[Rfam]
RNA sequence: GUCGGGAGGGCGGCAGCGAUACAAGACCCGCAAGGGGAAAGCUGCCCGCCGUCUAUGUCCGGUUUCUUACCCUCCCGACACCCACAG
Numbered sequence: 001g002u003c004g005g006g007a008g009g010g011c012g013g014c015a016g017c018g019a020u021a022c023a024a025g026a027c028c029c030g031c032a033a034g035g036g037g038a039a040a041g042c043u044g045c046c047c048g049c050c051g052u053c054u055a056u057g058u059c060c061g062g063u064u065u066c067u068u069a070c071c072c073u074c075c076c077g078a079c080a081c082c083c084a085c086a087g
Base pairs, nucleotide, nucleotide: 001079002078003077004076005075006074007073008072009071012046013045014044015043017041027036028035029034048063049062050061051060
RNA: sRNA-Xcc1
Organism: Xylella fastidiosa